Record summary:
Shown here is a 95-nucleotide RNA sequence from Mangrovibacter sp. MFB070, a member of the family "Guanidine-I riboswitch aptamer". The source organism's lineage runs through Bacteria, Pseudomonadati, Pseudomonadota, Enterobacteriaceae and Mangrovibacter. From the family's description: This family represents a conserved RNA structure found upstream of the ykkC and yxkD genes in Bacillus subtilis and related genes in other bacteria. The function of this family is unclear although it has been suggested that it may function to switch on efflux pumps and detoxification systems in response to harmful environmental molecules. Gene Ontology term of the family: regulation of gene expression.
RNA sequence: GAAAUGGAUCACUAGGGUUCCGGUCUUUUGACGCAGGUCCGAGAGUGAUCGACCGCCCUCUGGCGGUUACACGGCGGGAUAAAAGCCCGGGAGGA
Number, nucleotide and partner (000 for none) at each position: 001g000002a000003a000004a000005u000006g000007g050008a049009u048010c047011a046012c045013u000014a000015g040016g039017g000018u000019u000020c037021c036022g034023g032024u031025c030026u000027u000028u000029u000030g025031a024032c023033g000034c022035a000036g021037g020038u000039c016040c015041g000042a000043g000044a000045g012046u011047g010048a009049u008050c007051g068052a067053c066054c065055g064056c063057c062058c000059u000060c000061u000062g057063g056064c055065g054066g053067u052068u051069a000070c090071a000072c093073g000074g000075c000076g088077g087078g086079a000080u000081a000082a000083a000084a000085g000086c078087c077088c076089g000090g070091g000092a000093g072094g000095a000